[Rfam]
RNA sequence: CGGCACAGGCAGCAGCGGGGGAGCCACCUUCCUCCGGGCGUCGUCGCCCGCCGACGGCGUCCUUGGGGUGAAGCCGGACGCGCAUGCGCGUCCGGCCGGGCACCCAGCCCGAACCCGACAGCUCACCUCGCAGGCGCCUGGGAAAGGGUCC
Numbered sequence: 001c002g003g004c005a006c007a008g009g010c011a012g013c014a015g016c017g018g019g020g021g022a023g024c025c026a027c028c029u030u031c032c033u034c035c036g037g038g039c040g041u042c043g044u045c046g047c048c049c050g051c052c053g054a055c056g057g058c059g060u061c062c063u064u065g066g067g068g069u070g071a072a073g074c075c076g077g078a079c080g081c082g083c084a085u086g087c088g089c090g091u092c093c094g095g096c097c098g099g100g101c102a103c104c105c106a107g108c109c110c111g112a113a114c115c116c117g118a119c120a121g122c123u124c125a126c127c128u129c130g131c132a133g134g135c136g137c138c139u140g141g142g143a144a145a146g147g148g149u150c151c
Base pairs, nucleotide, nucleotide: 001012015131016130017129018128019127020126025065026064066116067115068114074095075094076093077092078091079090080089081088082087098110099109100108101107
Source information:
The family of this 151-nucleotide RNA sequence from Frankia nepalensis is "c-di-AMP riboswitch aptamer (ydaO/yuaA leader)". Rfam 15.1 lists 7,607 matches to the family in 2,262 species. Gene Ontology terms of the family: regulation of gene expression and cyclic-di-AMP binding.